Description: Rfam assigns this 195-nucleotide RNA from Diaphorina citri to the family "R2 RNA element". It is annotated as a cis-regulatory element. This family represents the 3' UTR region of the R2 retrotransposable element. This family is known to interact with the R2-encoded reverse transcriptase in a reaction known as target primed reverse transcription (TPRT). The match comes from Rfam's covariance-model search (46 bits). The organism belongs to Diaphorina, within Eukaryota. Rfam links the family to the GO term regulation of reverse transcription. The family has 15 seed sequences and 3,698 matches in Rfam 15.1.
RNA sequence: AAUAAGUUUGCCCAAUCGGACAAUAAUUAGGGCCCUGAAAUUAUGUCCAAUAUAUCUGGUUCCAGGGCCCUAAUGGGAAGAGGGAGAGGUUGGGUUUUAGUGGGUCUGGAUGUCCCGGUAUCCGGACAUCAAUCCCACACUCCCCAUUGCAAAUGUUUUAGCAAUGGGCGUCUUGGAAGAUUUCCCCCUCUCCAC
Numbered sequence: 001a002a003u004a005a006g007u008u009u010g011c012c013c014a015a016u017c018g019g020a021c022a023a024u025a026a027u028u029a030g031g032g033c034c035c036u037g038a039a040a041u042u043a044u045g046u047c048c049a050a051u052a053u054a055u056c057u058g059g060u061u062c063c064a065g066g067g068c069c070c071u072a073a074u075g076g077g078a079a080g081a082g083g084g085a086g087a088g089g090u091u092g093g094g095u096u097u098u099a100g101u102g103g104g105u106c107u108g109g110a111u112g113u114c115c116c117g118g119u120a121u122c123c124g125g126a127c128a129u130c131a132a133u134c135c136c137a138c139a140c141u142c143c144c145c146a147u148u149g150c151a152a153a154u155g156u157u158u159u160a161g162c163a164a165u166g167g168g169c170g171u172c173u174u175g176g177a178a179g180a181u182u183u184c185c186c187c188c189u190c191u192c193c194a195c
Base pairs, nucleotide, nucleotide: 031069032068033067034066035065036064074194075193076192085191086190087189088188089187092186093185094184100138101137102136103135104134109130110129111128112127113126114125116124117123118122140170142168143167144166